[Rfam]
About this RNA
The family of this 346-nucleotide RNA sequence from Acidihalobacter ferrooxydans is "Bacterial RNase P class A". The match comes from Rfam's covariance-model search (323 bits). The source organism's lineage runs through Bacteria, Pseudomonadota, Chromatiales, Ectothiorhodospiraceae and Acidihalobacter. Gene Ontology terms of the family: tRNA processing, ribonuclease P activity and dimeric ribonuclease P complex.
Nucleotides: 346
Stems, first nucleotide, its partner, number of pairs: 001342010011331001012311007020035006040329003044326005049216004056248004061212005066080005081095001082093004096207002101205002103201003118146002120142003125139003128135002154172006173196001174194005179188003220268004230259006239253005275294008
Number, partner (000 for none) and nucleotide at each position: 001342g002341g003340a004339g005338u006337c007336g008335g009334c010333c011331g012311g013310g014309c015308a016307g017306u018305c019000g020035c021034u022033c023032c024031g025030c026000u027000u028000c029000g030025g031024c032023g033022g034021g035020g036000a037000g038000g039000a040329a041328a042327g043000u044326c045325c046324g047323g048322g049216c050215u051214c052213c053000g054000c055000a056248g057247g058246g059245u060000g061212g062211g063210a064209u065208g066080c067079c068078a069077g070076g071000u072000a073000a074000c075000g076070c077069c078068u079067g080066g081095g082093c083092g084091g085090c086000g087000c088000g089000a090085g091084c092083c093082g094000a095081c096207g097206g098000a099000a100000a101205g102204u103201g104200c105199c106000a107000c108000a109000g110000a111000a112000a113000a114000c115000g116000u117000a118146c119145c120142g121141c122140c123000g124000a125139u126138g127137g128135c129134c130000u131000u132000c133000g134129g135128g136000a137127u138126c139125a140122g141121g142120u143000a144000a145119g146118g147000g148000u149000g150000a151000a152000a153000a154172g155171g156170u157169g158168c159167g160000g161000u162000a163000a164000g165000a166000g167159c168158g169157c170156a171155c172154c173196g174194c175193g176192c177191g178190g179188g180187u181186g182000g183000u184000a185000a186181c187180a188179u189000g190178c191177c192176g193175c194174g195000g196173c197000a198000c199105g200104g201103u202000a203000a204102a205101c206097c207096c208065c209064a210063u211062c212061c213052g214051g215050a216049g217000c218000a219000a220268g221267a222266c223265c224000a225000a226000a227000u228000a229000g230259g231258g232257a233256c234255g235254c236000a237000a238000u239253g240252g241251c242250g243249u244000g245059a246058c247057c248056c249243g250242c251241g252240c253239u254235g255234c256233g257232u258231c259230c260000g261000g262000g263000u264000a265223g266222g267221u268220u269000g270000c271000u272000a273000g274000a275294g276293g277292u278291g279290c280289g281288u282287g283000g284000c285000g286000a287282c288281g289280c290279g291278c292277a293276u294275c295000c296000c297000a298000g299000a300000u301000g302000a303000a304000u305018g306017a307016c308015u309014g310013u311012c312000c313000u314000c315000g316000a317000c318000a319000g320000a321000a322048c323047c324046c325045g326044g327042c328041u329040u330000a331011c332000a333010g334009g335008c336007c337006g338005g339004c340003u341002c342001c343000c344000u345000c346000c